Description: Shown here is a 209-nucleotide RNA from Thermobrachium celere, a member of the family "raiA RNA". The family's consensus secondary structure is taken from published work.
RNA sequence: GUCAGCUGGGUCUGUGGUUGAAAGUCGAUGCUAGCCGCAGGCGAAACGACCCACGUAAGUCAGACAAAAGUCUGAUGAGCAUGGUGCGGUUUAGAAGUAAGUCCUGCCGAAGUUUAAAACUUCGAGAGGGGGAUUAGUGAGAGGCAUACACCUUAAGCAAAACCUCCAGCAGGCGAGUGUGGGGGCAAAGACCAGGUCAGCCAGUUGAC
Numbered sequence: 001g002u003c004a005g006c007u008g009g010g011u012c013u014g015u016g017g018u019u020g021a022a023a024g025u026c027g028a029u030g031c032u033a034g035c036c037g038c039a040g041g042c043g044a045a046a047c048g049a050c051c052c053a054c055g056u057a058a059g060u061c062a063g064a065c066a067a068a069a070g071u072c073u074g075a076u077g078a079g080c081a082u083g084g085u086g087c088g089g090u091u092u093a094g095a096a097g098u099a100a101g102u103c104c105u106g107c108c109g110a111a112g113u114u115u116a117a118a119a120c121u122u123c124g125a126g127a128g129g130g131g132g133a134u135u136a137g138u139g140a141g142a143g144g145c146a147u148a149c150a151c152c153u154u155a156a157g158c159a160a161a162a163c164c165u166c167c168a169g170c171a172g173g174c175g176a177g178u179g180u181g182g183g184g185g186c187a188a189a190g191a192c193c194a195g196g197u198c199a200g201c202c203a204g205u206u207g208a209c
Stems, first nucleotide, its partner, number of pairs: 001209009012200003015194005028180003031041001033091007050084002058076001060075005082187001103173005108124005128166004137158002143152002